[Rfam]
Small nucleolar RNA Z13/snr52: a 109-nucleotide RNA sequence from Auriculariales sp. MPI-PUGE-AT-0066. The source organism's lineage runs through Eukaryota, Opisthokonta, Dikarya, Agaricomycotina and Auriculariales. Rfam links the family to the GO terms RNA processing and nucleolus.

RNA sequence: CCUGUCCCUUUCAUGAUGAAUCAUUACGGAUGUAAAAGAGCCUUGCUCGUCAUGUCCGAGAGCGCAAACCCCAUGUGGAGCUUUCCGUUGCCUUCCUUCUGACCUACAU
Numbered sequence: 001c002c003u004g005u006c007c008c009u010u011u012c013a014u015g016a017u018g019a020a021u022c023a024u025u026a027c028g029g030a031u032g033u034a035a036a037a038g039a040g041c042c043u044u045g046c047u048c049g050u051c052a053u054g055u056c057c058g059a060g061a062g063c064g065c066a067a068a069c070c071c072c073a074u075g076u077g078g079a080g081c082u083u084u085c086c087g088u089u090g091c092c093u094u095c096c097u098u099c100u101g102a103c104c105u106a107c108a109u
Stems, first nucleotide, its partner, number of pairs: 003108003027087004
Pairs were carried over by alignment from the consensus structure, which was predicted with PFOLD.